The record is a 147-nucleotide RNA sequence from Simplicispira sp. 125, which matches "Manganese Mn2+ riboswitch aptamer (yybP-ykoY)" in Rfam. The pairing is the family consensus, mapped onto this sequence. This RNA was originally discovered in E. coli during a large scale screen and was named SraF. The family was later found to exist upstream of related families of protein genes in many bacteria, including the the yybP and ykoK genes in B. subtilis. The specific functions of these proteins are unknown, but this structured RNA element may be involved in their genetic regulation as a riboswitch.
[Rfam]
RNA sequence: UUCCGGGUCAUUGGGGAGUAGCCUCUCUUCGCAUCGAAGAGGCUUACGUCAACAUACUUGACCCACCGGUCAUGGCGUAAGCGGUUUCUGAUUCCAUUUCCAAACCAUCCGUGUCGUUGUUGCUUGGCCUUGCCGUGCUACAACACU
Numbered sequence: 001u002u003c004c005g006g007g008u009c010a011u012u013g014g015g016g017a018g019u020a021g022c023c024u025c026u027c028u029u030c031g032c033a034u035c036g037a038a039g040a041g042g043c044u045u046a047c048g049u050c051a052a053c054a055u056a057c058u059u060g061a062c063c064c065a066c067c068g069g070u071c072a073u074g075g076c077g078u079a080a081g082c083g084g085u086u087u088c089u090g091a092u093u094c095c096a097u098u099u100c101c102a103a104a105c106c107a108u109c110c111g112u113g114u115c116g117u118u119g120u121u122g123c124u125u126g127g128c129c130u131u132g133c134c135g136u137g138c139u140a141c142a143a144c145a146c147u
Base pairs, nucleotide, nucleotide: 026040027039028038042082043081044080045079046078047077048076049075050074051073059072060071061070062069063068
Rfam links the family to the GO term manganese ion binding. The match comes from Rfam's covariance-model search (92 bits).